[Rfam]
Background
The family of this 114-nucleotide RNA from Papaver somniferum is "Small nucleolar RNA Z278". The family has 7 seed sequences and 1,130 matches in Rfam 15.1. By type it is a C/D-box small nucleolar RNA. The organism belongs to Papaver, within Eukaryota. The family's consensus secondary structure was predicted with PFOLD. Gene Ontology terms of the family: RNA processing and nucleolus. From the family's description: snoZ278 is a C/D box small nucleolar RNA. Its methylation guide targets have not been reported.
RNA sequence: GUUUAUGAUGAUAUUAUCCAAUUAAUUGAGGUAUAGUGGAACUGAGACCCUGUUUACUGGGAGAACCACUCGGCGAAGCUAGAUUUUAAUGAUAUCAAUGGAUCUAUCUGAGGC
Numbered sequence: 001g002u003u004u005a006u007g008a009u010g011a012u013a014u015u016a017u018c019c020a021a022u023u024a025a026u027u028g029a030g031g032u033a034u035a036g037u038g039g040a041a042c043u044g045a046g047a048c049c050c051u052g053u054u055u056a057c058u059g060g061g062a063g064a065a066c067c068a069c070u071c072g073g074c075g076a077a078g079c080u081a082g083a084u085u086u087u088a089a090u091g092a093u094a095u096c097a098a099u100g101g102a103u104c105u106a107u108c109u110g111a112g113g114c
Stems, first nucleotide, its partner, number of pairs: 001114003048061003052057001